[Rfam]
Source information
Shown here is a 47-nucleotide RNA from Hevea brasiliensis, a member of the family "Plastid-ycf3 group II-D1 intron". Rfam describes the family as follows. Plastid rpl16 is a non-coding RNA (ncRNA) recognised in plastids. It was recognised in and intronic region of a ribosome rpl16 gene. NCBI's taxonomy places the organism under Eukaryota, Euphyllophyta, Spermatophyta, Mesangiospermae, Hevea. A search with the family's covariance model found it, with a score of 65 bits.
RNA sequence: AUUCCUUCUGUCAGGUAUCCCCGAUUAAUGCAGCCUCAAAUGCUUCA
Numbered sequence: 001a002u003u004c005c006u007u008c009u010g011u012c013a014g015g016u017a018u019c020c021c022c023g024a025u026u027a028a029u030g031c032a033g034c035c036u037c038a039a040a041u042g043c044u045u046c047a
Base pairs, nucleotide, nucleotide: 010025011024012023032044033043034042